[Rfam]
RNA sequence: GACUUGGUCUAUCUAGCAAGCUUAAGCCGUUAGGUGUAGGCGCAGCGAAAGCGAGUCUUAAUAGGGCGUCGAGUUAGAUGGAUCAGACCCGAAACCGAGUGAUCUAGGCAUGACCAGGAUGAAGGUACGGUAACACGUACUGGAGGUCCGAACCCACACCUGUUGAAAAAGGUCGGGAUGAGUUGUGCCUAGGGGUGAAAGGCCAAUCAAACUCGGAGAUAGCUGGUU
Numbered sequence: 001g002a003c004u005u006g007g008u009c010u011a012u013c014u015a016g017c018a019a020g021c022u023u024a025a026g027c028c029g030u031u032a033g034g035u036g037u038a039g040g041c042g043c044a045g046c047g048a049a050a051g052c053g054a055g056u057c058u059u060a061a062u063a064g065g066g067c068g069u070c071g072a073g074u075u076a077g078a079u080g081g082a083u084c085a086g087a088c089c090c091g092a093a094a095c096c097g098a099g100u101g102a103u104c105u106a107g108g109c110a111u112g113a114c115c116a117g118g119a120u121g122a123a124g125g126u127a128c129g130g131u132a133a134c135a136c137g138u139a140c141u142g143g144a145g146g147u148c149c150g151a152a153c154c155c156a157c158a159c160c161u162g163u164u165g166a167a168a169a170a171g172g173u174c175g176g177g178a179u180g181a182g183u184u185g186u187g188c189c190u191a192g193g194g195g196u197g198a199a200a201g202g203c204c205a206a207u208c209a210a211a212c213u214c215g216g217a218g219a220u221a222g223c224u225g226g227u228u
Stems, first nucleotide, its partner, number of pairs: 005085013020041004026035003045052002055067004088226002091223001095216006104192011115180001117149004124141006153177003158173004194204003